[Rfam]
RNA sequence: UUGUGUUAGGGAUAGUAGCGGCAUCCUUUUUUGCUUUCUACAGAAGUAGAACUAAUAAGCAAAAAGAUAUAGCGAAUAGCCCGACCCAAA
Number, nucleotide and partner (000 for none) at each position: 001u000002u000003g000004u000005g000006u000007u000008a000009g082010g081011g080012a000013u078014a077015g000016u000017a000018g073019c072020g000021g000022c000023a068024u067025c066026c000027u000028u000029u064030u063031u062032u061033g060034c059035u058036u057037u000038c000039u000040a000041c000042a000043g000044a000045a000046g000047u000048a000049g000050a000051a000052c000053u000054a000055a000056u000057a036058a035059g034060c033061a032062a031063a030064a029065a000066g025067a024068u023069a000070u000071a000072g019073c018074g000075a000076a000077u014078a013079g000080c011081c010082c009083g000084a000085c000086c000087c000088a000089a000090a000

This 90-nucleotide RNA sequence from Mesonia phycicola belongs to the Rfam family "Flavo-1 RNA". The family's consensus secondary structure is taken from published work. It scores 57 bits against the family's covariance model. By type it is a small RNA. The source organism's lineage runs through Bacteria, Pseudomonadati, Flavobacteriia, Flavobacteriaceae and Mesonia.